[Rfam]
RNA sequence: GCUGAUGUGAAUGAUGACUAAAUCUUUUUUCCCCAUCAGAUCGACACUGUUGAUUUUGCUAUUUUAGCCAGUUCGUGUCUGAUACAUCAGC
Numbered sequence: 001g002c003u004g005a006u007g008u009g010a011a012u013g014a015u016g017a018c019u020a021a022a023u024c025u026u027u028u029u030u031c032c033c034c035a036u037c038a039g040a041u042c043g044a045c046a047c048u049g050u051u052g053a054u055u056u057u058g059c060u061a062u063u064u065u066a067g068c069c070a071g072u073u074c075g076u077g078u079c080u081g082a083u084a085c086a087u088c089a090g091c
Stems, first nucleotide, its partner, number of pairs: 001091009
Description: Small nucleolar SNORD12/SNORD106: a 91-nucleotide sequence from Pogona vitticeps. By type it is a C/D-box small nucleolar RNA. It scores 86 bits against the family's covariance model. On this family, see Huttenhofer et al., EMBO J 2001: "RNomics: an experimental approach that identifies 201 candidates for novel, small, non-messenger RNAs in mouse". The family's consensus secondary structure was predicted with RNAalifold. The family has 8 seed sequences and 2,264 matches in Rfam 15.1.